[Rfam]
RNA sequence: GUUGCAAACUUUGAGGCCAAAGCAGUAGCAUUCACUGGAUGGCUCAGUCAGAUUCCAACAAAUCUGUGAAUUCCGCU
Numbered sequence: 001g002u003u004g005c006a007a008a009c010u011u012u013g014a015g016g017c018c019a020a021a022g023c024a025g026u027a028g029c030a031u032u033c034a035c036u037g038g039a040u041g042g043c044u045c046a047g048u049c050a051g052a053u054u055c056c057a058a059c060a061a062a063u064c065u066g067u068g069a070a071u072u073c074c075g076c077u
Stems, first nucleotide, its partner, number of pairs: 013045002016043003021077003025073001027071001028040001049066006